Nucleotides: 111
Base pairs, nucleotide, nucleotide: 008104009103010102011101012100013099020047021046022045023044049091050090051089052087053086056085057084058083
Number, partner (000 for none) and nucleotide at each position: 001000u002000u003000g004000c005000c006000a007000c008104u009103g010102u011101c012100a013099g014000g015000a016000g017000a018000g019000a020047g021046u022045g023044c024000u025000c026000u027000c028000a029000g030000c031000u032000u033000c034000a035000c036000g037000c038000u039000g040000c041000a042000a043000c044023g045022c046021a047020c048000c049091g050090c051089c052087g053086a054000a055000g056085g057084c058083g059000c060000a061000g062000a063000c064000a065000c066000c067000c068000c069000a070000c071000c072000u073000g074000g075000u076000g077000c078000c079000c080000a081000a082000a083058c084057g085056c086053u087052c088000a089051g090050g091049c092000a093000a094000a095000a096000g097000g098000a099013c100012u101011g102010a103009c104008a105000a106000g107000c108000g109000c110000u111000g